Rfam assigns this 83-nucleotide RNA from Sylvia atricapilla to the family "Small nucleolar RNA SNORD87". Rfam 15.1 lists 539 matches to the family in 430 species.
RNA sequence: UCUGGCAUAAUGAUGAGACUUUUUUUGCCGUUUACCCAUCUGAAUGUUUUUUGAUGUGUAUUCUUGAGAUCUGAAAUGCCAGU
Numbered sequence: 001u002c003u004g005g006c007a008u009a010a011u012g013a014u015g016a017g018a019c020u021u022u023u024u025u026u027g028c029c030g031u032u033u034a035c036c037c038a039u040c041u042g043a044a045u046g047u048u049u050u051u052u053g054a055u056g057u058g059u060a061u062u063c064u065u066g067a068g069a070u071c072u073g074a075a076a077u078g079c080c081a082g083u
Stems, first nucleotide, its partner, number of pairs: 002082006
The pairing is the family consensus, mapped onto this sequence.
Taxonomically the source falls in Sylvia (Eukaryota, Deuterostomia, Euteleostomi, Dipnotetrapodomorpha).
For this family Rfam cites "U87 RNA, a novel C/D box small nucleolar RNA from mammalian cells" (Gogolevskaya et al., Gene, 2002).
A search with the family's covariance model found it, with a score of 54 bits.